[Rfam]
Nucleotides: 141
Stems, first nucleotide, its partner, number of pairs: 001061001003059003009052004016045003020039006080136004095129001097127001101125003106120002109117001
Number, partner (000 for none) and nucleotide at each position: 001061u002000u003059c004058c005057c006000c007000c008000a009052u010051g011050g012049a013000c014000a015000a016045a017044a018043g019000g020039a021038u022037c023036a024035c025034c026000u027000u028000g029000u030000u031000u032000g033000u034025g035024g036023u037022g038021a039020u040000g041000u042000u043018c044017u045016u046000g047000u048000a049012u050011c051010u052009g053000u054000c055000c056000a057005g058004g059003g060000c061001a062000g063000a064000g065000c066000a067000g068000a069000u070000g071000c072000c073000a074000g075000u076000u077000c078000u079000u080136u081135g082134u083133u084000u085000g086000u087000c088000c089000u090000a091000g092000c093000u094000u095129g096000a097127u098000g099000c100000c101125u102124g103123a104000u105000u106120u107119g108000g109117u110000g111000a112000c113000c114000a115000a116000a117109g118000c119107u120106g121000u122000u123103u124102u125101a126000u127097g128000c129095c130000u131000a132000c133083g134082g135081c136080a137000c138000a139000u140000a141000a
Record summary
The family of this 141-nucleotide RNA from Rattus norvegicus is "Small nucleolar RNA SNORA48". The snoRNA ACA 48 has been identified to guide pseudouridylation of the residue U3797 in the 28S rRNA subunit. Its Rfam clan is "SNORA48 clan". The family's consensus secondary structure was predicted with RNAalifold. It scores 52 bits against the family's covariance model. Rfam links the family to the GO terms nucleolus and RNA processing.